[Rfam]
RNA sequence: ACUGGAAGCUGCUGGGACCAGUCAUGGGCAAAAGAAAAAUGUUUUGUCCACCACUGCAGUCUUCCUAGAGAAAAGUGGAGGUCUCUGUCUGCUUUAGGAGAGCCAACUAAACCGGAUCGUUCCCCUCCAUACAUG
Numbered sequence: 001a002c003u004g005g006a007a008g009c010u011g012c013u014g015g016g017a018c019c020a021g022u023c024a025u026g027g028g029c030a031a032a033a034g035a036a037a038a039a040u041g042u043u044u045u046g047u048c049c050a051c052c053a054c055u056g057c058a059g060u061c062u063u064c065c066u067a068g069a070g071a072a073a074a075g076u077g078g079a080g081g082u083c084u085c086u087g088u089c090u091g092c093u094u095u096a097g098g099a100g101a102g103c104c105a106a107c108u109a110a111a112c113c114g115g116a117u118c119g120u121u122c123c124c125c126u127c128c129a130u131a132c133a134u135g
Stems, first nucleotide, its partner, number of pairs: 004065003008060005025050005034043001077128005085119001087117003091113001093111005